[Rfam]
RNA sequence: UGCCUUUGUGUUGCCCAUUCAUUUGUUACGGUAAUGACUGGGGUGUCAAAAGAGGCAUAAAUUAUACACUCUGCAGCAUGUUGGGUUUUUAGGAGUUACUUCCUUUCUUCUUUUGCUGCUUUUGAGGGACAUCC
Numbered sequence: 001u002g003c004c005u006u007u008g009u010g011u012u013g014c015c016c017a018u019u020c021a022u023u024u025g026u027u028a029c030g031g032u033a034a035u036g037a038c039u040g041g042g043g044u045g046u047c048a049a050a051a052g053a054g055g056c057a058u059a060a061a062u063u064a065u066a067c068a069c070u071c072u073g074c075a076g077c078a079u080g081u082u083g084g085g086u087u088u089u090u091a092g093g094a095g096u097u098a099c100u101u102c103c104u105u106u107c108u109u110c111u112u113u114u115g116c117u118g119c120u121u122u123u124g125a126g127g128g129a130c131a132u133c134c
Stems, first nucleotide, its partner, number of pairs: 002056006009048002012045004016040002019037005069126003073119005083113003092103002

Annotation
Shown here is a 134-nucleotide RNA from Ornithorhynchus anatinus, a member of the family "Small nucleolar RNA SNORA13". Lineage of the source: Eukaryota > Craniata > Sarcopterygii > Mammalia > Ornithorhynchus. Its Rfam clan is "SNORA13 clan". ACA13 is a member of the H/ACA class of snoRNA that guide the sites of modification of uridines to pseudouridines.